[Rfam]
The record is a 120-nucleotide RNA, which matches "DUF3268 RNA" in Rfam.

RNA sequence: GGCAGGGGCUUGCGCCCAGGCUUUCGGUACAUCGGAGAGCUCCCGGUGUCAUACAUGCCGCACAGAGGCAUGGAACCCGUUACGGAUUAGCGCACAGAGCGAUCCACAAUGACGCAAGCC
Numbered sequence: 001g002g003c004a005g006g007g008g009c010u011u012g013c014g015c016c017c018a019g020g021c022u023u024u025c026g027g028u029a030c031a032u033c034g035g036a037g038a039g040c041u042c043c044c045g046g047u048g049u050c051a052u053a054c055a056u057g058c059c060g061c062a063c064a065g066a067g068g069c070a071u072g073g074a075a076c077c078c079g080u081u082a083c084g085g086a087u088u089a090g091c092g093c094a095c096a097g098a099g100c101g102a103u104c105c106a107c108a109a110u111g112a113c114g115c116a117a118g119c120c
Stems, first nucleotide, its partner, number of pairs: 007120008016111001025079003029049007054072006084105003088102001090100002
By type it is a small RNA.